Overview: The record is a 360-nucleotide sequence from Nitrosomonas europaea, which matches "transfer-messenger RNA" in Rfam. Rfam describes the family as follows. Bacterial tmRNA, also known as 10Sa RNA or SsrA, is named for its dual tRNA and mRNA-like properties. Taxonomically the source falls in Nitrosomonas europaea (Bacteria, Pseudomonadota, Betaproteobacteria, Nitrosomonas). The family's RNA type in Rfam is non-coding RNA gene.

[Rfam]
RNA sequence: GGGGGCGAUCCGGUUUCGACGUGGGUUGCAAAGCAGCGCAGGGCAUACCGAGGUUCAGUACCCUCGUAAAACAGCUGAAAAAAAAUAGUCGCAAACGACGAAAACUACGCUUUAGCCGCUUAAUCCGGCUAAACUCCACACCGGUGGGCCUCAACGCCGGGUCUGGCAACAGACAGUGGAGUCAUUAACGAGGAUCGCGUUUUGCAGGGUUACUUUGCAGAGCGCUAAAAAAUAGGUAACUCGCCUGUCAUCAGCCUGCCGGUUGGCGGAUGCCAGGUCAAAUUAAAUAACAUGGCUAAGUAUGUAGAACUGUCUGUAGAGGACUUGCGGACGCGGGUUCAAUUCCCGCCGCCUCCACCA
Numbered sequence: 001g002g003g004g005g006c007g008a009u010c011c012g013g014u015u016u017c018g019a020c021g022u023g024g025g026u027u028g029c030a031a032a033g034c035a036g037c038g039c040a041g042g043g044c045a046u047a048c049c050g051a052g053g054u055u056c057a058g059u060a061c062c063c064u065c066g067u068a069a070a071a072c073a074g075c076u077g078a079a080a081a082a083a084a085a086u087a088g089u090c091g092c093a094a095a096c097g098a099c100g101a102a103a104a105c106u107a108c109g110c111u112u113u114a115g116c117c118g119c120u121u122a123a124u125c126c127g128g129c130u131a132a133a134c135u136c137c138a139c140a141c142c143g144g145u146g147g148g149c150c151u152c153a154a155c156g157c158c159g160g161g162u163c164u165g166g167c168a169a170c171a172g173a174c175a176g177u178g179g180a181g182u183c184a185u186u187a188a189c190g191a192g193g194a195u196c197g198c199g200u201u202u203u204g205c206a207g208g209g210u211u212a213c214u215u216u217g218c219a220g221a222g223c224g225c226u227a228a229a230a231a232a233u234a235g236g237u238a239a240c241u242c243g244c245c246u247g248u249c250a251u252c253a254g255c256c257u258g259c260c261g262g263u264u265g266g267c268g269g270a271u272g273c274c275a276g277g278u279c280a281a282a283u284u285a286a287a288u289a290a291c292a293u294g295g296c297u298a299a300g301u302a303u304g305u306a307g308a309a310c311u312g313u314c315u316g317u318a319g320a321g322g323a324c325u326u327g328c329g330g331a332c333g334c335g336g337g338u339u340c341a342a343u344u345c346c347c348g349c350c351g352c353c354u355c356c357a358c359c360a
Base pairs, nucleotide, nucleotide: 001356002355003354004353005352006351007350020329021328022327023326024325025324026323027322033317034316035315036314039312040311041310044304045303046302047301048300049066050065051064052063053062054079055078056077057076058075059074111133112132113131114130115129116128117127118126134181135180136179137178138177139176142159143158144157145156149193150192151191152190197225198224199223200222201221202220203219204218205217208241209240210239211238212237213236243278244277245276246275247274249272250271251270252269254267255266256265258296259295260294261293262291263290264289333349334348335347336346337345
It is one of the family's seed sequences.